[Rfam]
RNA sequence: GUAGCUGUCCAUAAAUAACUUAGUCAAAUAGGUUAUUUUAAAGCUACCCGCUUUGGUUCUUCGGAACUCCGUUAGGGGCGAAAAUAUAGGUACUCUUGUGAUGCUUCUCCAGUCCGAGACUCUACGGGGAACGAUUAAACAGGUAUGAUGGAAAGACCAGUGUCGUUUCCAUUUAAAACCGCUUUCUAACAUUAGCUAGGAGACCAUUAC
Numbered sequence: 001g002u003a004g005c006u007g008u009c010c011a012u013a014a015a016u017a018a019c020u021u022a023g024u025c026a027a028a029u030a031g032g033u034u035a036u037u038u039u040a041a042a043g044c045u046a047c048c049c050g051c052u053u054u055g056g057u058u059c060u061u062c063g064g065a066a067c068u069c070c071g072u073u074a075g076g077g078g079c080g081a082a083a084a085u086a087u088a089g090g091u092a093c094u095c096u097u098g099u100g101a102u103g104c105u106u107c108u109c110c111a112g113u114c115c116g117a118g119a120c121u122c123u124a125c126g127g128g129g130a131a132c133g134a135u136u137a138a139a140c141a142g143g144u145a146u147g148a149u150g151g152a153a154a155g156a157c158c159a160g161u162g163u164c165g166u167u168u169c170c171a172u173u174u175a176a177a178a179c180c181g182c183u184u185u186c187u188a189a190c191a192u193u194a195g196c197u198a199g200g201a202g203a204c205c206a207u208u209a210c
Base pairs, nucleotide, nucleotide: 001047002046003045004044005043006042008040010031011029012028014021015020050196051195052194055068056067057066058065059064071190072189073188074187075186076185077184078183090125091124094119095118096117097116098115100114101113102112106203107202108201109200110199127170128169129168130167131166132165133164134163135162139161140160142158143157144156146153
HNH endonuclease-associated RNA and ORF (HEARO) RNA: a 210-nucleotide sequence from Candidatus Thiomargarita nelsonii. For this family Rfam cites "Exceptional structured noncoding RNAs revealed by bacterial metagenome analysis" (Weinberg et al., Nature, 2009). Lineage of the source: Bacteria > Pseudomonadati > Pseudomonadota > Thiotrichaceae > Thiomargarita. The match comes from Rfam's covariance-model search (88 bits). Rfam classes the family as a non-coding RNA gene.